The family of this 70-nucleotide RNA sequence from Acrobeloides nanus is "mir-236 microRNA precursor family". The organism belongs to Acrobeloides, within Eukaryota. The family's consensus secondary structure was predicted with RNAalifold. The match comes from Rfam's covariance-model search (64 bits). Rfam 15.1 lists 52 matches to the family in 50 species.

[Rfam]
RNA sequence: GUUCGUCGUCGUACCUGAACAAUAUUAGAGAGAGAUUCAAGUCUAAUACUGUCAGGUAAUGACGACGACU
Numbered sequence: 001g002u003u004c005g006u007c008g009u010c011g012u013a014c015c016u017g018a019a020c021a022a023u024a025u026u027a028g029a030g031a032g033a034g035a036u037u038c039a040a041g042u043c044u045a046a047u048a049c050u051g052u053c054a055g056g057u058a059a060u061g062a063c064g065a066c067g068a069c070u
Stems, first nucleotide, its partner, number of pairs: 001070001003068008012058006020051002023048007